Rfam assigns this 143-nucleotide RNA sequence from Bacillus coahuilensis to the family "FMN riboswitch aptamer (RFN element)". The source organism's lineage runs through Bacteria, Bacillota, Bacilli, Caryophanales and Bacillus coahuilensis. The match comes from Rfam's covariance-model search (118 bits). A reference for the family is Gelfand et al. (1999), "A conserved RNA structure element involved in the regulation of bacterial riboflavin synthesis genes", Trends Genet. Pairs were carried over by alignment from the consensus structure, which is taken from published work.

RNA sequence: AUAAUCCUUCGGGGCAGGGUGUAAUUCCCUACCGGCGGUGAUGAGCUUUGUGCUUUUAGUCCGUGAGCGAAACGUUUUAACGUCUUGCUGAUUUGGUGAAAAUCCAAAACCGACAGUGAAAGUCUGGAUGGGAGAAGGAAAAU
Numbered sequence: 001a002u003a004a005u006c007c008u009u010c011g012g013g014g015c016a017g018g019g020u021g022u023a024a025u026u027c028c029c030u031a032c033c034g035g036c037g038g039u040g041a042u043g044a045g046c047u048u049u050g051u052g053c054u055u056u057u058a059g060u061c062c063g064u065g066a067g068c069g070a071a072a073c074g075u076u077u078u079a080a081c082g083u084c085u086u087g088c089u090g091a092u093u094u095g096g097u098g099a100a101a102a103u104c105c106a107a108a109a110c111c112g113a114c115a116g117u118g119a120a121a122g123u124c125u126g127g128a129u130g131g132g133a134g135a136a137g138g139a140a141a142a143u
Stems, first nucleotide, its partner, number of pairs: 005139006017029003031123002033112002035064004059110002067088003092108005114126003